RNA sequence: GGGCCAGCUUAGCCUAGCGGUUACUUCGUGACAGCAAACACAUUCAACUAGCGACUACGCAGUUCGAGACCCGCGGGCGCUGCCUGGCCUUUUG
Numbered sequence: 001g002g003g004c005c006a007g008c009u010u011a012g013c014c015u016a017g018c019g020g021u022u023a024c025u026u027c028g029u030g031a032c033a034g035c036a037a038a039c040a041c042a043u044u045c046a047a048c049u050a051g052c053g054a055c056u057a058c059g060c061a062g063u064u065c066g067a068g069a070c071c072c073g074c075g076g077g078c079g080c081u082g083c084c085u086g087g088c089c090u091u092u093u094g
Base pairs, nucleotide, nucleotide: 002089003088004087005086006085007084012078013077014076015075017074018073019072020071025068026067027066028065
RNA: Vault RNA
Organism: Salvator merianae